[Rfam]
RNA sequence: UAUUUGUACCAGAUGCUCCUUUUUCUGUAUUGUCAGAAAGAGCAUCCUGUGCAAAAGA
Numbered sequence: 001u002a003u004u005u006g007u008a009c010c011a012g013a014u015g016c017u018c019c020u021u022u023u024u025c026u027g028u029a030u031u032g033u034c035a036g037a038a039a040g041a042g043c044a045u046c047c048u049g050u051g052c053a054a055a056a057g058a
Base pairs, nucleotide, nucleotide: 003055004054005053006052007051008050009049012046013045014044015043016042017041018040021037022036024035
The record is a 58-nucleotide RNA sequence from Monodelphis domestica, which matches "mir-7371 microRNA precursor family" in Rfam.
Lineage of the source: Eukaryota > Eumetazoa > Deuterostomia > Euteleostomi > Monodelphis.
Rfam 15.1 lists 11 matches to the family in 2 species.
The sequence is in the family's curated seed alignment.
The family's consensus secondary structure was predicted with RNAalifold.